RNA: M-box riboswitch aptamer (ykoK leader)
RNA sequence: UAUCGAUCUCGUUAUGGCGAGGCUCCUGCACAAAUAUAAGUUACCGCCCUGCUGGUAUCGAGAGAGACCACUCAGGGAAAUACAGGCAUCCAUCGAAUCAAGGUGUUGCCAAGGUAACUUCUGACGAUAUCACUAUCGGGCAGAUACGUUGUGCAGUGCUAAAACCAGGACGUAGGGAUCUGCC
Dot-bracket structure: ....(((((((([..((...(((..((((((((......(((((..((((.....(.((....)).)......)))).......((((...(((......])))..))))...))))).(((...................)))....)))))))).)))....))...))...))))))....